[Rfam]
The record is a 107-nucleotide sequence from Betacoronavirus hongkongense, which matches "Coronavirus packaging signal" in Rfam. This family represents a predicted coronavirus packaging signal. By type it is a cis-regulatory element. Lineage of the source: Viruses > Pisuviricota > Cornidovirineae > Betacoronavirus > Betacoronavirus hongkongense.
RNA sequence: AUGUUAUCUUCAGCCGAACAGACAGCCUAUGCUCAAGCCAUUACUGGAGCCCACAAGGUAAUCUAGGUGGUAAUUGCGCGGGUAAUGUCAUUGGUAAUGAUGCUCUA
Numbered sequence: 001a002u003g004u005u006a007u008c009u010u011c012a013g014c015c016g017a018a019c020a021g022a023c024a025g026c027c028u029a030u031g032c033u034c035a036a037g038c039c040a041u042u043a044c045u046g047g048a049g050c051c052c053a054c055a056a057g058g059u060a061a062u063c064u065a066g067g068u069g070g071u072a073a074u075u076g077c078g079c080g081g082g083u084a085a086u087g088u089c090a091u092u093g094g095u096a097a098u099g100a101u102g103c104u105c106u107a
Stems, first nucleotide, its partner, number of pairs: 008102001010100003014094003021089004026082002034076003038070003044066005050058002